[Rfam]
RNA sequence: GCGCCGCUGGUGUACUGGUAACAUCUCAGAUUCCCAUUCUGAGGCUCCGGGUUCGAUUCCCGGGCGGCGCA
Numbered sequence: 001g002c003g004c005c006g007c008u009g010g011u012g013u014a015c016u017g018g019u020a021a022c023a024u025c026u027c028a029g030a031u032u033c034c035c036a037u038u039c040u041g042a043g044g045c046u047c048c049g050g051g052u053u054c055g056a057u058u059c060c061c062g063g064g065c066g067g068c069g070c071a
Stems, first nucleotide, its partner, number of pairs: 001070007010024004026042005047063005
RNA: tRNA
Organism: Amphibalanus amphitrite